[Rfam]
RNA sequence: AGGUCGGGAGACUUUCCUUGGGAAGAAAGUCAGGAAUUGACCUUCACUGUCGUCUCAACUUUACCCGCCACUGGGUCCCCGACAGUGUGUGGA
Numbered sequence: 001a002g003g004u005c006g007g008g009a010g011a012c013u014u015u016c017c018u019u020g021g022g023a024a025g026a027a028a029g030u031c032a033g034g035a036a037u038u039g040a041c042c043u044u045c046a047c048u049g050u051c052g053u054c055u056c057a058a059c060u061u062u063a064c065c066c067g068c069c070a071c072u073g074g075g076u077c078c079c080c081g082a083c084a085g086u087g088u089g090u091g092g093a
Base pairs, nucleotide, nucleotide: 001043002042003041004040005039010031011030012029013028014027015026016025065092066091067090068089069087070086071085072084073083
RNA: Rhodo-rpoB RNA